Description:
mir-263 microRNA precursor family: an 82-nucleotide sequence from Galleria mellonella.
RNA sequence: CCACACCGUGUCUUGGCACUGGGAGAAUUCACAGGAGUUUGAAAUAUACCCGUGAAUUUCCUGAUGCCUCAACUUGGUGUGG
Numbered sequence: 001c002c003a004c005a006c007c008g009u010g011u012c013u014u015g016g017c018a019c020u021g022g023g024a025g026a027a028u029u030c031a032c033a034g035g036a037g038u039u040u041g042a043a044a045u046a047u048a049c050c051c052g053u054g055a056a057u058u059u060c061c062u063g064a065u066g067c068c069u070c071a072a073c074u075u076g077g078u079g080u081g082g
Stems, first nucleotide, its partner, number of pairs: 003080006010073001015068004020063003023059001025058002029055004034050001
The literature on the family includes a 2009 paper in BMC Genomics by Li et al., "Direct sequencing and expression analysis of a large number of miRNAs in Aedes aegypti and a multi-species survey of novel mosquito miRNAs".
Clan: mir-182 clan.